[Rfam]
Description: A member of the RNA family "Ribosomal S15 leader" from Psychromonas sp. psych-6C06, 134 nucleotides long. Rfam describes the family as follows. The E. coli Ribosomal S15 gene 5' UTR can form two alternative structures. One that is a series of three hairpins, The other includes a pseudoknot. It is annotated as a cis-regulatory leader. For this family Rfam cites "Pseudoknot and translational control in the expression of the S15 ribosomal protein" (Benard et al., Biochimie, 1996). Taxonomically the source falls in Psychromonas (Bacteria, Gammaproteobacteria, Alteromonadales, Psychromonadaceae).
RNA sequence: CUUUAUCGCUGAAUUAGUGAUCGGCGAUAAUAAUUAAAACAGGUUAUACACAUAACCAUUAAAUAUCGGAGUAUGUUAUGUCACUAAGUGCACAACAGAAAGCUGAAAUUGUAGCAAAAUUUGGUCGUUCAGAA
Numbered sequence: 001c002u003u004u005a006u007c008g009c010u011g012a013a014u015u016a017g018u019g020a021u022c023g024g025c026g027a028u029a030a031u032a033a034u035u036a037a038a039a040c041a042g043g044u045u046a047u048a049c050a051c052a053u054a055a056c057c058a059u060u061a062a063a064u065a066u067c068g069g070a071g072u073a074u075g076u077u078a079u080g081u082c083a084c085u086a087a088g089u090g091c092a093c094a095a096c097a098g099a100a101a102g103c104u105g106a107a108a109u110u111g112u113a114g115c116a117a118a119a120u121u122u123g124g125u126c127g128u129u130c131a132g133a134a
Base pairs, nucleotide, nucleotide: 007026008025009024010023011022012021051088068085069084071082